[Rfam]
Nucleotides: 297
Stems, first nucleotide, its partner, number of pairs: 001013004060245005066239002071187006081178003188225002193220004201214005229276001231275005247262006282295002285292002
Number, partner (000 for none) and nucleotide at each position: 001013u002012c003011g004010a005000c006000g007000a008000c009000u010004u011003u012002g013001g014000a015000u016000a017000a018000a019000a020000u021000a022000a023000u024000c025000g026000a027000g028000a029000c030000u031000u032000g033000a034000a035000u036000g037000c038000u039000a040000g041000u042000c043000a044000g045000c046000c047000g048000u049000a050000g051000u052000g053000c054000u055000g056000g057000c058000c059000a060245c061244a062243c063242c064241g065000u066239c067238a068000a069000a070000u071187u072186g073185c074184g075183g076182g077000a078000a079000g080000c081178u082177c083176c084000u085000a086000a087000a088000g089000c090000u091000c092000u093000c094000a095000g096000c097000u098000a099000c100000c101000a102000a103000g104000c105000a106000g107000c108000g109000c110000c111000g112000g113000g114000a115000a116000a117000c118000c119000g120000c121000g122000c123000u124000g125000u126000g127000g128000c129000c130000a131000g132000g133000g134000u135000a136000a137000u138000g139000a140000c141000c142000u143000c144000g145000g146000g147000u148000a149000u150000g151000g152000u153000a154000a155000c156000a157000a158000c159000g160000c161000u162000g163000g164000a165000g166000a167000u168000g169000u170000a171000c172000c173000a174000a175000u176083g177082g178081a179000u180000g181000a182076u183075c184074c185073g186072c187071a188225g189224c190000c191000a192000a193220g194219u195218c196217c197000u198000a199000a200000g201214c202213c203212g204211g205210g206000c207000c208000g209000c210205c211204c212203c213202g214201g215000a216000c217196g218195g219194a220193u221000g222000c223000u224189g225188u226000u227000c228000a229276c230000a231275g232274a233273c234272u235271a236000a237000a238067u239066g240000g241064u242063g243062g244061u245060g246000g247262g248261u249260g250259g251258a252257u253000u254000u255000c256000g257252g258251u259250c260249c261248g262247c263000u264000u265000a266000a267000g268000a269000u270000a271235u272234a273233g274232u275231c276229g277000g278000c279000c280000u281000c282295c283294c284000c285292g286291g287000g288000a289000a290000a291286c292285u293000a294283g295282g296000g297000a